[Rfam]
RNA sequence: AAAACGGCCCUUUUCAGGGCCACCCAAAAUCUCAAAAAAGAGGGAA
Dot-bracket structure: .....((((((....)))))).........................